Shown here is a 63-nucleotide RNA from Alphacoronavirus myotis, a member of the family "Coronavirus 3' UTR pseudoknot". Clan: Coronavirus 3' UTR. It is one of the family's seed sequences. From the family's description: Coronaviruses are plus-strand RNA viruses with ~30kb genomes. The 3' UTR region of coronavirus genomes contains a conserved ~55nt pseudoknot structure which has been shown to be necessary for viral genome replication. The mechanism of cis-regulation is unclear, but this element is postulated to function in the plus-strand. The seed alignment was expanded in 2020 by Eric Nawrocki. Taxonomically the source falls in Bat coronavirus CDPHE15 (Viruses, Cornidovirineae, Orthocoronavirinae, Alphacoronavirus).
[Rfam]
RNA sequence: CUAGUCUUGCACACAAUGGUAAGCCAGUAGUAAUGACAGUGCAAGUAGGUUAUUACUAUAUUA
Numbered sequence: 001c002u003a004g005u006c007u008u009g010c011a012c013a014c015a016a017u018g019g020u021a022a023g024c025c026a027g028u029a030g031u032a033a034u035g036a037c038a039g040u041g042c043a044a045g046u047a048g049g050u051u052a053u054u055a056c057u058a059u060a061u062u063a
Stems, first nucleotide, its partner, number of pairs: 007044006028058002031055007